RNA sequence: GCCGAGCUCAGCAACGUGAGCUUGUAACCCGAGUGGGGGCUUUGAGGUGCUGGAACAUUGUCCCAGUAUUAGCUGGUCGGGUUCGGGUUGGCUAUCUUCUGGCCCGCCCAUUCCAAGCCAGGAGUUGAACCCUGUGGCUUGAGCGAAGGCUCUGGUCACUGCGUAAGGCUGGCUUCACAGAGCAACGACUACCUCCCGCUCUAGGCAGUGGAAGGAUAACGGGUCGGUGCCACUCGGAUCCGCCAUGGCCUGCUAGACUGUCCCAAUUGAACCAAAACCUUU
Numbered sequence: 001g002c003c004g005a006g007c008u009c010a011g012c013a014a015c016g017u018g019a020g021c022u023u024g025u026a027a028c029c030c031g032a033g034u035g036g037g038g039g040c041u042u043u044g045a046g047g048u049g050c051u052g053g054a055a056c057a058u059u060g061u062c063c064c065a066g067u068a069u070u071a072g073c074u075g076g077u078c079g080g081g082u083u084c085g086g087g088u089u090g091g092c093u094a095u096c097u098u099c100u101g102g103c104c105c106g107c108c109c110a111u112u113c114c115a116a117g118c119c120a121g122g123a124g125u126u127g128a129a130c131c132c133u134g135u136g137g138c139u140u141g142a143g144c145g146a147a148g149g150c151u152c153u154g155g156u157c158a159c160u161g162c163g164u165a166a167g168g169c170u171g172g173c174u175u176c177a178c179a180g181a182g183c184a185a186c187g188a189c190u191a192c193c194u195c196c197c198g199c200u201c202u203a204g205g206c207a208g209u210g211g212a213a214g215g216a217u218a219a220c221g222g223g224u225c226g227g228u229g230c231c232a233c234u235c236g237g238a239u240c241c242g243c244c245a246u247g248g249c250c251u252g253c254u255a256g257a258c259u260g261u262c263c264c265a266a267u268u269g270a271a272c273c274a275a276a277a278c279c280u281u282u
Base pairs, nucleotide, nucleotide: 001040002039003038004023005022006021007020008019009018010017028037029036030035044281045280046279047278048277051274052273053272056269057268058266059265060264064260065259066258067257069256070255071254072253073252075250076249077248078247079241080240081239082238083237084236085235086234087233089232090231091230093229094228099227100226101225102224103223104222105221106220108215109214111213112212113211114210115209117206118205119204121202122201123200124199125198138155139154141152142151143150144149156191162187163186164185169180170179171178

The record is a 282-nucleotide RNA from Prunus avium, which matches "Plant signal recognition particle RNA" in Rfam. For this family Rfam cites "Kinship in the SRP RNA family" (Rosenblad et al., RNA Biol, 2009). NCBI's taxonomy places the organism under Eukaryota, Streptophyta, Pentapetalae, Rosales, Prunus. The base pairs follow the family's consensus structure, which is taken from published work.